[Rfam]
RNA sequence: UUAAUGAUGGUACGCGAUCUUCGUAUAUCCUCGAUAAUAUGGUUCGAGAGUCUCUACCGGGUGACCGUAAAUCACCCGACUACGAAGGCAGAUGAUUCUAUU
Numbered sequence: 001u002u003a004a005u006g007a008u009g010g011u012a013c014g015c016g017a018u019c020u021u022c023g024u025a026u027a028u029c030c031u032c033g034a035u036a037a038u039a040u041g042g043u044u045c046g047a048g049a050g051u052c053u054c055u056a057c058c059g060g061g062u063g064a065c066c067g068u069a070a071a072u073c074a075c076c077c078g079a080c081u082a083c084g085a086a087g088g089c090a091g092a093u094g095a096u097u098c099u100a101u102u
Base pairs, nucleotide, nucleotide: 018088019087020086021085022084023083024082025081030048031047032046033045034044058078059077060076061075062074063073064072
This 102-nucleotide sequence from Thermolongibacillus altinsuensis belongs to the Rfam family "Purine riboswitch aptamer". The organism belongs to Thermolongibacillus, within Bacteria.